[Rfam]
permuted transfer-messenger RNA: a 210-nucleotide RNA sequence from Actibacterium atlanticum. Gene Ontology term of the family: RNA catabolic process. Pairs were carried over by alignment from the consensus structure, which is taken from published work. Lineage of the source: Bacteria > Pseudomonadati > Pseudomonadota > Roseobacteraceae > Actibacterium.
RNA sequence: GGCAAUAAACGCGCUCGUAAUAAGCGGAUCGGACCCGGGGGCGGUACCCGGCGGCUCCACCAAUCAUCCUUCAUUUGGGGAUCAUGGGGCCGAAAUAGGAUCGACGGACGUCUAAAGGGGUUAGCUUUUGCUCGGUGAGGAACCACCGUUACCGGUCCGAUUAAGCUAGUUGCAAAUGACAACAAAGCUCCGGUUGCUCUGGCUGCUUAA
Numbered sequence: 001g002g003c004a005a006u007a008a009a010c011g012c013g014c015u016c017g018u019a020a021u022a023a024g025c026g027g028a029u030c031g032g033a034c035c036c037g038g039g040g041g042c043g044g045u046a047c048c049c050g051g052c053g054g055c056u057c058c059a060c061c062a063a064u065c066a067u068c069c070u071u072c073a074u075u076u077g078g079g080g081a082u083c084a085u086g087g088g089g090c091c092g093a094a095a096u097a098g099g100a101u102c103g104a105c106g107g108a109c110g111u112c113u114a115a116a117g118g119g120g121u122u123a124g125c126u127u128u129u130g131c132u133c134g135g136u137g138a139g140g141a142a143c144c145a146c147c148g149u150u151a152c153c154g155g156u157c158c159g160a161u162u163a164a165g166c167u168a169g170u171u172g173c174a175a176a177u178g179a180c181a182a183c184a185a186a187g188c189u190c191c192g193g194u195u196g197c198u199c200u201g202g203c204u205g206c207u208u209a210a
Stems, first nucleotide, its partner, number of pairs: 001132005013121004025110002029107003035051005052092007133148004